[Rfam]
RNA sequence: UCGGCGGGAACCCGUUCACUCCACUUUCUUGAGCGGGGAAACGCUGCAAAUAAAGGAGGAACUGUCCCCGCGGCUCGGGGUACGGCAGUGUGGAGACCUGUCGUAAAGCGCGGCCGAUGCAAACGCGGCGCGCGAGACGGUCCGUUGAAGAAGUUCGGGACCGUUAGGGCCAGGAAAACAUGGCA
Numbered sequence: 001u002c003g004g005c006g007g008g009a010a011c012c013c014g015u016u017c018a019c020u021c022c023a024c025u026u027u028c029u030u031g032a033g034c035g036g037g038g039a040a041a042c043g044c045u046g047c048a049a050a051u052a053a054a055g056g057a058g059g060a061a062c063u064g065u066c067c068c069c070g071c072g073g074c075u076c077g078g079g080g081u082a083c084g085g086c087a088g089u090g091u092g093g094a095g096a097c098c099u100g101u102c103g104u105a106a107a108g109c110g111c112g113g114c115c116g117a118u119g120c121a122a123a124c125g126c127g128g129c130g131c132g133c134g135a136g137a138c139g140g141u142c143c144g145u146u147g148a149a150g151a152a153g154u155u156c157g158g159g160a161c162c163g164u165u166a167g168g169g170c171c172a173g174g175a176a177a178a179c180a181u182g183g184c185a
Base pairs, nucleotide, nucleotide: 006042011037012036013035014034015033016032017031018030066080067079068078069077072171073170074169075168076167081105082104083103084102085101086100087099088098090097091096108133109132110131111130112129114128115127116126136165137164138163139162140161141160142159143158147156148155149154
Rfam assigns this 185-nucleotide RNA sequence to the family "malK-I RNA". The family's consensus secondary structure is taken from published work. The family's RNA type in Rfam is cis-regulatory element.